Mammalian CPEB3 ribozyme: a 78-nucleotide RNA sequence from Crocodylus porosus.
RNA sequence: AGAUUGCAAGUUUGAGCCCUUAGCAGAAGCAUUCAUGGUACAGCCAUGUCAGAUUCCAACAAAUCUGCAAAUUCUGCU
Numbered sequence: 001a002g003a004u005u006g007c008a009a010g011u012u013u014g015a016g017c018c019c020u021u022a023g024c025a026g027a028a029g030c031a032u033u034c035a036u037g038g039u040a041c042a043g044c045c046a047u048g049u050c051a052g053a054u055u056c057c058a059a060c061a062a063a064u065c066u067g068c069a070a071a072u073u074c075u076g077c078u
Stems, first nucleotide, its partner, number of pairs: 013046002016044002022078007029041001031039001050067006
The mammalian CPEB3 ribozyme is a self cleaving RNA located in the second intron of the CPEB3 gene which belongs to a family of genes regulating messenger RNA polyadenylation. This ribozyme is highly conserved and found only in mammals. The CPEB3 ribozyme is structurally and biochemically related to the human hepatitis delta virus (HDV) ribozyme and the HDV ribozyme is proposed to have arisen from the human transcriptome.
Pairs were carried over by alignment from the consensus structure, which is taken from published work.
The literature on the family includes a 2006 paper in Science by Salehi-Ashtiani et al., "A genomewide search for ribozymes reveals an HDV-like sequence in the human CPEB3 gene".